[Rfam]
RNA sequence: ACGGUUAUAAAUCAAGGUAUUGAUUUAUAUACAUGGAUAUCCCCUGAGUGAAACAACGAAUUGCUGUGUGUAGUCUUUGCCCAACUCCCACGUUGGGCUUUUUUUUUA
Numbered sequence: 001a002c003g004g005u006u007a008u009a010a011a012u013c014a015a016g017g018u019a020u021u022g023a024u025u026u027a028u029a030u031a032c033a034u035g036g037a038u039a040u041c042c043c044c045u046g047a048g049u050g051a052a053a054c055a056a057c058g059a060a061u062u063g064c065u066g067u068g069u070g071u072a073g074u075c076u077u078u079g080c081c082c083a084a085c086u087c088c089c090a091c092g093u094u095g096g097g098c099u100u101u102u103u104u105u106u107u108a
Base pairs, nucleotide, nucleotide: 002022003021004020005019032046033045035043036042062070063069064068079098080097081096082095083094084093085092